Notes: This 69-nucleotide RNA from Panicum hallii belongs to the Rfam family "Plastid-clpP 5UTR RNA".
RNA sequence: AAUUCUGUUGGUAAGAAGAAAAAGAAGCAGAUCUAUUCUAUACUCGAUAAGUGCAAAUAUGCAAUGGAU
Numbered sequence: 001a002a003u004u005c006u007g008u009u010g011g012u013a014a015g016a017a018g019a020a021a022a023a024g025a026a027g028c029a030g031a032u033c034u035a036u037u038c039u040a041u042a043c044u045c046g047a048u049a050a051g052u053g054c055a056a057a058u059a060u061g062c063a064a065u066g067g068a069u
Stems, first nucleotide, its partner, number of pairs: 003022002006019001008017002044067002051060003
Rfam classes the family as a cis-regulatory element. About the family: Plastid clpP is a non-coding RNA (ncRNA) recognised in plastids. Lineage of the source: Eukaryota > Liliopsida > Poales > Panicodae > Panicum hallii. For this family Rfam cites "Retrograde signaling in plants: A critical review focusing on the GUN pathway and beyond" (Richter et al., Plant Commun, 2023).